[Rfam]
RNA sequence: CUUCACGACAAGCGAUCAUGAACGGGCUCCGACCCGAUCGCAGGCCAACCCCACGACUCACGGGUGGCUCGGAUGACGAAGCGGCCCGGCGCAAACGCGCCGCGCAAGAGCGAUCC
Dot-bracket structure: ((((....(..((((((.......((......)).)))))).)(((..(((..........))).))).........))))..((.((((((....)))))).))...........
SAM (S-adenosyl methionine) riboswitch aptamer: a 116-nucleotide sequence from Paeniglutamicibacter cryotolerans. On this family, see Weinberg et al., RNA 2008: "The aptamer core of SAM-IV riboswitches mimics the ligand-binding site of SAM-I riboswitches". Rfam's curators write: SAM-IV is a mRNA element that regulates gene expression via direct sensing of S-adenosylmethionine (SAM or AdoMet). The family's consensus secondary structure is taken from published work.